RNA sequence: AAGUAGCGUGACAUGCCCGUUUGGGAUAUACUCUGAUGUGGAUUUGUUAUUUAAUUGUUUUUGGGAUAACGGGGUGUUACACUAAA
Numbered sequence: 001a002a003g004u005a006g007c008g009u010g011a012c013a014u015g016c017c018c019g020u021u022u023g024g025g026a027u028a029u030a031c032u033c034u035g036a037u038g039u040g041g042a043u044u045u046g047u048u049a050u051u052u053a054a055u056u057g058u059u060u061u062u063g064g065g066a067u068a069a070c071g072g073g074g075u076g077u078u079a080c081a082c083u084a085a086a
Base pairs, nucleotide, nucleotide: 004084005083006082008080009079010078011077012076013075014074016073017072018071019070020069021068
Record summary
A member of the RNA family "MIR2617 microRNA precursor family" from Medicago truncatula, 86 nucleotides long. The match comes from Rfam's covariance-model search (58 bits). Gene Ontology terms of the family: RISC complex and miRNA-mediated post-transcriptional gene silencing.